[Rfam]
RNA sequence: AAAAAAAAAAUAUUAACUCCGUAGACAGUAGGUGCGAAAGCGUAAAGUAGAUCAACCUGCCGAGGUAGAUAUAUUAGUUUAUAAUAGGUCUUCCUUGUGUCUACGGGAAGGCCUUUAUUAAUACAAAA
Dot-bracket structure: ...........................((((((((....)).............))))))..........................(((((((((.........)))))))))...............

A member of the RNA family "Ribosomal protein L10 leader" from Clostridium vincentii, 128 nucleotides long. It is annotated as a cis-regulatory leader. Rfam describes the family as follows. This family is a putative r-protein leader autoregulatory structure found in B. subtilis and other low-GC Gram-positive bacteria. It is located in the 5' untranslated regions of mRNAs encoding ribosomal proteins L10 and L12 (rplJ-rplL). A Rho-independent transcription terminator structure that is probably involved in regulation is included at the 3' end. For this family Rfam cites "Diverse mechanisms for regulating ribosomal protein synthesis in Escherichia coli" (Zengel and Lindahl, Prog Nucleic Acid Res Mol Biol, 1994).